[Rfam]
RNA sequence: CGGUGUGAACAGGUUACAUGUGGUACAGCAUGAUAGUGGAAUAUGCUGCAUCACGUGUAACCUCCCCACACUGC
Numbered sequence: 001c002g003g004u005g006u007g008a009a010c011a012g013g014u015u016a017c018a019u020g021u022g023g024u025a026c027a028g029c030a031u032g033a034u035a036g037u038g039g040a041a042u043a044u045g046c047u048g049c050a051u052c053a054c055g056u057g058u059a060a061c062c063u064c065c066c067c068a069c070a071c072u073g074c
Stems, first nucleotide, its partner, number of pairs: 003071005011063011023051002026048002
The family of this 74-nucleotide RNA sequence from Ornithorhynchus anatinus is "mir-1421 microRNA precursor family". Gene Ontology terms of the family: RISC complex and miRNA-mediated post-transcriptional gene silencing. Lineage of the source: Eukaryota > Metazoa > Eumetazoa > Euteleostomi > Ornithorhynchus. Rfam 15.1 lists 110 matches to the family in 14 species.